[Rfam]
RNA sequence: UCGCAAUAGCCGGGGAGGUAGCGGUGCCUUAUUACCUGCAAUCCGCUAUAGCAGGGGCGAAUGCCUAUAGAAGGUCUUAUCAUGUGUGGUCAGCACUUUUGAUUUGAUGUUGAGGAAAAAGUCUUUUACGAAGAAAAACCACCGAACGGGUCAGAUCCGGAAGGAAGCAGCCAUAAGGCGGACACUUUUCUUGUGUAAGAGGUUCCUUUUUCUGAGUCAAAGAGAAAGCAAGCGCAUGGAUGAUUAGAUCGUAUAUAGGUUUGUGA
Dot-bracket structure: ((((((..(((((((.(.(...).).))))....(((((...........)))))))).....((((((...(((((.(((((.((((....(..(((((...(((((.....((((((((.((((((((.(((((..((.((.....(((....(((....)))....)))....)).)).....)))))))..))))))....))))))))..))).))..)))))....).)))).))))).)))))...)))))).))))))
The record is a 266-nucleotide RNA sequence from Texcoconibacillus texcoconensis, which matches "Bacterial large signal recognition particle RNA" in Rfam. The organism belongs to Texcoconibacillus, within Bacteria. It is annotated as a non-coding RNA gene. The family is grouped with related families in Rfam's "SRP clan". The match comes from Rfam's covariance-model search (152 bits). Rfam's curators write: The signal recognition particle (SRP) is a universally conserved ribonucleoprotein involved in the co-translational targeting of proteins to membranes.